[Rfam]
Rfam assigns this 288-nucleotide RNA sequence from Chlamydomonas schloesseri to the family "Plant signal recognition particle RNA". By type it is a non-coding RNA gene. The source organism's lineage runs through Eukaryota, core chlorophytes, Chlorophyceae, Chlamydomonadaceae and Chlamydomonas. The match comes from Rfam's covariance-model search (143 bits). The family has 63 seed sequences and 4,988 matches in Rfam 15.1.
RNA sequence: GCCGGCAGGAGUCGCGACCUGCUGUCACCCAUGUGGGGGCCAGAUGGAUGGAGGAACGUAUGGCUCCUCGGUCGUGUUCGCUUCCGUCGAUAGCGUGUCCUUCCUGAGUCUACAGUCGGCAAGGGUGCCGCCCUGACGGGUGGUUGUCCUGGUCGAUGAUUAGUCCCGCACCGCGUGAGGCAGGAAACUGAGCAGCGAAAAGGGGCAGCUGCGGACGGCAGGGGGAUCGCAUGCUUGAGGAGGCGGCACGGCCACCCGAGGGGUCCUCUGCGGGACCAACUACCGUUU
Numbered sequence: 001g002c003c004g005g006c007a008g009g010a011g012u013c014g015c016g017a018c019c020u021g022c023u024g025u026c027a028c029c030c031a032u033g034u035g036g037g038g039g040c041c042a043g044a045u046g047g048a049u050g051g052a053g054g055a056a057c058g059u060a061u062g063g064c065u066c067c068u069c070g071g072u073c074g075u076g077u078u079c080g081c082u083u084c085c086g087u088c089g090a091u092a093g094c095g096u097g098u099c100c101u102u103c104c105u106g107a108g109u110c111u112a113c114a115g116u117c118g119g120c121a122a123g124g125g126u127g128c129c130g131c132c133c134u135g136a137c138g139g140g141u142g143g144u145u146g147u148c149c150u151g152g153u154c155g156a157u158g159a160u161u162a163g164u165c166c167c168g169c170a171c172c173g174c175g176u177g178a179g180g181c182a183g184g185a186a187a188c189u190g191a192g193c194a195g196c197g198a199a200a201a202g203g204g205g206c207a208g209c210u211g212c213g214g215a216c217g218g219c220a221g222g223g224g225g226a227u228c229g230c231a232u233g234c235u236u237g238a239g240g241a242g243g244c245g246g247c248a249c250g251g252c253c254a255c256c257c258g259a260g261g262g263g264u265c266c267u268c269u270g271c272g273g274g275a276c277c278a279a280c281u282a283c284c285g286u287u288u
Base pairs, nucleotide, nucleotide: 001040002039003038004023005022006021007020008019009018028037029036030035042288043287044286045285046284047283050280053277054276057272059270060269062267063266065262066261067260068259069258070253071252072251073250074249075248076247077246079245081242082241083240085239092235093234094233095232096231097230098229099225100224102223103222104221105220106219108216109215110214111213113211114210115209116208117155118154119153120152122150123149124148125147126146127144128143129142130141131140132139133138156161163206164205165204166203167202174197175196176195181190182189183188